[Rfam]
RNA sequence: GGAUUCCCGUCGAGAAAGAAUUAGCCAUUCACUCGUAGCGAGUCUUGGAGGGCAGGUGGUAACACUCUGCUUUUAAGCGUAGACAGCUAGGUAAUGGGCCGUAAGCCGUUAGGUUGAAGGGAUUGAGCUUCGAAAUUUCGCGUUAGUUGGGAAGGCCGAUGCACUCAGGAGUGUAGAAGGCAAUAUUGUUAUUCUCGUAAAUGGCGAGAGAAUAACAACUUCCUCGGAGUCGGUGACCA
Numbered sequence: 001g002g003a004u005u006c007c008c009g010u011c012g013a014g015a016a017a018g019a020a021u022u023a024g025c026c027a028u029u030c031a032c033u034c035g036u037a038g039c040g041a042g043u044c045u046u047g048g049a050g051g052g053c054a055g056g057u058g059g060u061a062a063c064a065c066u067c068u069g070c071u072u073u074u075a076a077g078c079g080u081a082g083a084c085a086g087c088u089a090g091g092u093a094a095u096g097g098g099c100c101g102u103a104a105g106c107c108g109u110u111a112g113g114u115u116g117a118a119g120g121g122a123u124u125g126a127g128c129u130u131c132g133a134a135a136u137u138u139c140g141c142g143u144u145a146g147u148u149g150g151g152a153a154g155g156c157c158g159a160u161g162c163a164c165u166c167a168g169g170a171g172u173g174u175a176g177a178a179g180g181c182a183a184u185a186u187u188g189u190u191a192u193u194c195u196c197g198u199a200a201a202u203g204g205c206g207a208g209a210g211a212a213u214a215a216c217a218a219c220u221u222c223c224u225c226g227g228a229g230u231c232g233g234u235g236a237c238c239a
Stems, first nucleotide, its partner, number of pairs: 011035004018030004022207001024205002038087002042084004046079002048074008056065003124233001125231001127230006149224006155181003160175004186218011
This 239-nucleotide RNA sequence from Mesobacillus persicus belongs to the Rfam family "Group II catalytic intron D1-D4-6". Rfam describes the family as follows. Group II introns are found in rRNA, tRNA and mRNA of organelles in fungi, plants and protists, and also in mRNA in bacteria. The base pairs follow the family's consensus structure. Gene Ontology term of the family: Group II intron splicing.